[Rfam]
RNA sequence: CGUCGGGGUCUCCUCAUUGUGCAUGCUGUGUGUAUUUCUCUGAUUGCCACACAGCGCCUGCAAUGUGGAGGUUGAGACA
Numbered sequence: 001c002g003u004c005g006g007g008g009u010c011u012c013c014u015c016a017u018u019g020u021g022c023a024u025g026c027u028g029u030g031u032g033u034a035u036u037u038c039u040c041u042g043a044u045u046g047c048c049a050c051a052c053a054g055c056g057c058c059u060g061c062a063a064u065g066u067g068g069a070g071g072u073u074g075a076g077a078c079a
Stems, first nucleotide, its partner, number of pairs: 012068002015065007024056001026054006